[Rfam]
RNA sequence: UGUUUUCAGGCUGCAACGGAGUGCUGCGCGCACGGGCUGGAUGUUCAC
Numbered sequence: 001u002g003u004u005u006u007c008a009g010g011c012u013g014c015a016a017c018g019g020a021g022u023g024c025u026g027c028g029c030g031c032a033c034g035g036g037c038u039g040g041a042u043g044u045u046c047a048c
Stems, first nucleotide, its partner, number of pairs: 009038004021033004
Rfam assigns this 48-nucleotide RNA sequence to the family "ssnA RNA". Rfam classes the family as a cis-regulatory element. The family's consensus secondary structure is taken from published work.